[Rfam]
RNA sequence: UCGCAGAGUAGAAGCGUUCAGCUGGUGUCCCACCACCCGCCCGGAAAUUGCUCUUGUA
Numbered sequence: 001u002c003g004c005a006g007a008g009u010a011g012a013a014g015c016g017u018u019c020a021g022c023u024g025g026u027g028u029c030c031c032a033c034c035a036c037c038c039g040c041c042c043g044g045a046a047a048u049u050g051c052u053c054u055u056g057u058a
Stems, first nucleotide, its partner, number of pairs: 005054006015043001018045002021040002024037004